[Rfam]
RNA: Bacterial large subunit ribosomal RNA, nucleotides 653 to 884
RNA sequence: GAGUUACGAUAGCGAGCGAGGUUAAGGCGUGGAAGCGCCGGAGCCGGAGGGAAACCGAGUCUGAACAGGGCGCAAAGUUCGUUGUCGUAGACCCGAAGCCAAGUGAUCUAGUUACGGGCAGGUUGAAGCUCAGGUAAAACUGAGUGGAGGACCGAACUCUAGUGUGAUGAAAAACGCAGGGAUGACCCGUGACUCGGAGUGAAAGGCUAAACAAACUUGGAAAUAGCUGGCU
Numbered sequence: 001g002a003g004u005u006a007c008g009a010u011a012g013c014g015a016g017c018g019a020g021g022u023u024a025a026g027g028c029g030u031g032g033a034a035g036c037g038c039c040g041g042a043g044c045c046g047g048a049g050g051g052a053a054a055c056c057g058a059g060u061c062u063g064a065a066c067a068g069g070g071c072g073c074a075a076a077g078u079u080c081g082u083u084g085u086c087g088u089a090g091a092c093c094c095g096a097a098g099c100c101a102a103g104u105g106a107u108c109u110a111g112u113u114a115c116g117g118g119c120a121g122g123u124u125g126a127a128g129c130u131c132a133g134g135u136a137a138a139a140c141u142g143a144g145u146g147g148a149g150g151a152c153c154g155a156a157c158u159c160u161a162g163u164g165u166g167a168u169g170a171a172a173a174a175c176g177c178a179g180g181g182a183u184g185a186c187c188c189g190u191g192a193c194u195c196g197g198a199g200u201g202a203a204a205g206g207c208u209a210a211a212c213a214a215a216c217u218u219g220g221a222a223a224u225a226g227c228u229g230g231c232u
Base pairs, nucleotide, nucleotide: 005089006088007087008086009085010084011083012082013081014080015079016078017077020045021044022043023042026039027038028037049056050055059071060070061069062068092230093229095227099220100219101218102217103216104215108196110194111193112192113191114190115189116188117187118186119184121153122152123151124150128145129144130143131142132141133140157181158180159179162177163176164175165174198208199207200206